Nucleotides: 088
Base pairs, nucleotide, nucleotide: 008048009047010046011045012044013043016032017031018030019029020028021027057078058077059076061075062074065071066070
Number, partner (000 for none) and nucleotide at each position: 001000u002000c003000c004000a005000g006000g007000a008048g009047g010046a011045a012044a013043c014000a015000a016032a017031a018030u019029g020028a021027a022000c023000g024000a025000a026000g027021u028020u029019c030018a031017u032016u033000u034000c035000c036000u037000a038000u039000a040000a041000a042000a043013g044012u045011u046010u047009c048008c049000g050000a051000c052000g053000a054000a055000u056000a057078g058077c059076c060000g061075c062074c063000g064000a065071c066070c067000g068000a069000a070066g071065g072000g073000c074062g075061g076059g077058g078057c079000a080000u081000u082000a083000c084000a085000u086000a087000a088000u